[Rfam]
RNA sequence: CCUCCCCGGAGCCAGGAUGCAGCUCAAGCCACCGCGGGGUGUUUAGCGCUCUUCAGUGGCUCCAGAUUGUGGCGCUGGUGCAGG
Numbered sequence: 001c002c003u004c005c006c007c008g009g010a011g012c013c014a015g016g017a018u019g020c021a022g023c024u025c026a027a028g029c030c031a032c033c034g035c036g037g038g039g040u041g042u043u044u045a046g047c048g049c050u051c052u053u054c055a056g057u058g059g060c061u062c063c064a065g066a067u068u069g070u071g072g073c074g075c076u077g078g079u080g081c082a083g084g
Stems, first nucleotide, its partner, number of pairs: 001084003005080001006078004011073004016068003023065002027061006034054001036052007

Rfam assigns this 84-nucleotide RNA from Pan troglodytes to the family "mir-1203 microRNA precursor family". Pairs were carried over by alignment from the consensus structure, which was predicted with RNAalifold. Lineage of the source: Eukaryota > Primates > Hominoidea > Homininae > Pan. The sequence is in the family's curated seed alignment.